[Rfam]
RNA sequence: AUCGUUCAUCCUCUUAGAGGACGGAAGUAGGUAAUGAUACCGAAGGAACGCAUC
Numbered sequence: 001a002u003c004g005u006u007c008a009u010c011c012u013c014u015u016a017g018a019g020g021a022c023g024g025a026a027g028u029a030g031g032u033a034a035u036g037a038u039a040c041c042g043a044a045g046g047a048a049c050g051c052a053u054c
Base pairs, nucleotide, nucleotide: 003050004049005048006047007046009021010020011019012018013017024051030041031040032039
RNA: Glutamine riboswitch aptamer (glnA leader)